[Rfam]
RNA sequence: GGGGCCGUUUAUGGAUUCGACGGGGGUAGUUCGGACAUGAGUAGCGGGUAGUAGGGCUGCGGCUGCUUCACCAACGCGGAAGCCAAUUAACUGGCAAACAACAACCAACCUACGCUGUAGCAGCCUGAAGAAACUGCUCACGUGCUCCUACCUUCCAUCGCCCAUGUGGCGGGAUAGGGGCUCAACUUUAGUGGGAUACGCUGUCUAGUCUCCGCCUGGGGCUAACAGAAGAAGACAAUCAGGCUGACCCGAAGGGAAUCCGGUGACAGGGAGUCUCUAGGGUGACAUCAAAUCUGUCACUACACCCGUAGAAGCUUAUGUUGCGUUAUCUUCGGACAGGGGUUCGACUCCCCUCGGCUCCACCA
Numbered sequence: 001g002g003g004g005c006c007g008u009u010u011a012u013g014g015a016u017u018c019g020a021c022g023g024g025g026g027u028a029g030u031u032c033g034g035a036c037a038u039g040a041g042u043a044g045c046g047g048g049u050a051g052u053a054g055g056g057c058u059g060c061g062g063c064u065g066c067u068u069c070a071c072c073a074a075c076g077c078g079g080a081a082g083c084c085a086a087u088u089a090a091c092u093g094g095c096a097a098a099c100a101a102c103a104a105c106c107a108a109c110c111u112a113c114g115c116u117g118u119a120g121c122a123g124c125c126u127g128a129a130g131a132a133a134c135u136g137c138u139c140a141c142g143u144g145c146u147c148c149u150a151c152c153u154u155c156c157a158u159c160g161c162c163c164a165u166g167u168g169g170c171g172g173g174a175u176a177g178g179g180g181c182u183c184a185a186c187u188u189u190a191g192u193g194g195g196a197u198a199c200g201c202u203g204u205c206u207a208g209u210c211u212c213c214g215c216c217u218g219g220g221g222c223u224a225a226c227a228g229a230a231g232a233a234g235a236c237a238a239u240c241a242g243g244c245u246g247a248c249c250c251g252a253a254g255g256g257a258a259u260c261c262g263g264u265g266a267c268a269g270g271g272a273g274u275c276u277c278u279a280g281g282g283u284g285a286c287a288u289c290a291a292a293u294c295u296g297u298c299a300c301u302a303c304a305c306c307c308g309u310a311g312a313a314g315c316u317u318a319u320g321u322u323g324c325g326u327u328a329u330c331u332u333c334g335g336a337c338a339g340g341g342g343u344u345c346g347a348c349u350c351c352c353c354u355c356g357g358c359u360c361c362a363c364c365a
Base pairs, nucleotide, nucleotide: 001361002360003359004358005357006356007355021334022333023332024331025330026329027328028327029326030325034322035321036320037319038318039317040316041315042314045308046307047306048305049304050067051066052065053064054063057079058078059077060076061075117141118140120137121136122135123134144181145180146179147178148177149176151173152172153171155169156168157167158166161195162194163193164192165191201228202227203226204225206224207223208222209221214244215243216242217241218240247283248282249281250280252278254276255275256274259272260271261270263300264299265298266297269293338354339353340352341351342350
A member of the RNA family "transfer-messenger RNA" from Cohnella rhizosphaerae, 365 nucleotides long. Lineage of the source: Bacteria > Bacillati > Caryophanales > Paenibacillaceae > Cohnella. Gene Ontology term of the family: RNA catabolic process. The family's consensus secondary structure is taken from published work. The family's RNA type in Rfam is non-coding RNA gene.